[Rfam]
RNA sequence: UUAAAUGCAAUGAUGAGAAGAGUACACUAUAGUAAUAGUUUUAUAGAGAGCUUAGUUGGGUGAAAAUAAGCAAACUAUUCUUGGUAGAAGAUGGUCUCGUAGCAUGGACAGCUGAGCUUUUUAGUGGGUAAAGUUGUUUCAGGUGCGCCUGUUAUCGCGCUACAAUAUACAAAAGUGUAUUGGAAUAACAAGUGGGUUGUAAUCGUUUAGCUAAAUUACAAUCAAUGAAGGUGGUACCACGAGCGCGCAAGCUUUCGUCCUUUUU
Numbered sequence: 001u002u003a004a005a006u007g008c009a010a011u012g013a014u015g016a017g018a019a020g021a022g023u024a025c026a027c028u029a030u031a032g033u034a035a036u037a038g039u040u041u042u043a044u045a046g047a048g049a050g051c052u053u054a055g056u057u058g059g060g061u062g063a064a065a066a067u068a069a070g071c072a073a074a075c076u077a078u079u080c081u082u083g084g085u086a087g088a089a090g091a092u093g094g095u096c097u098c099g100u101a102g103c104a105u106g107g108a109c110a111g112c113u114g115a116g117c118u119u120u121u122u123a124g125u126g127g128g129u130a131a132a133g134u135u136g137u138u139u140c141a142g143g144u145g146c147g148c149c150u151g152u153u154a155u156c157g158c159g160c161u162a163c164a165a166u167a168u169a170c171a172a173a174a175g176u177g178u179a180u181u182g183g184a185a186u187a188a189c190a191a192g193u194g195g196g197u198u199g200u201a202a203u204c205g206u207u208u209a210g211c212u213a214a215a216u217u218a219c220a221a222u223c224a225a226u227g228a229a230g231g232u233g234g235u236a237c238c239a240c241g242a243g244c245g246c247g248c249a250a251g252c253u254u255u256c257g258u259c260c261u262u263u264u265u
Base pairs, nucleotide, nucleotide: 007103008102015098016097017096018095026085027084028083029082039074040073041072050071051070052069053068054067107138108137109136110135111134112133113132140151141150142149195223196222197221198220199219200218201217202216203215228262229261230260231259239258240257241256242255243254
Rfam assigns this 265-nucleotide sequence from Vagococcus entomophilus to the family "T-box leader". From the family's description: Uncharged tRNA acts as the effector for transcription antitermination of genes in the T-box leader family. T-boxes are found upstream of many aminoacyl-tRNA synthetase genes and some amino acid biosynthetic genes usually in Gram-positive bacteria. It is annotated as a cis-regulatory leader. It scores 103 bits against the family's covariance model.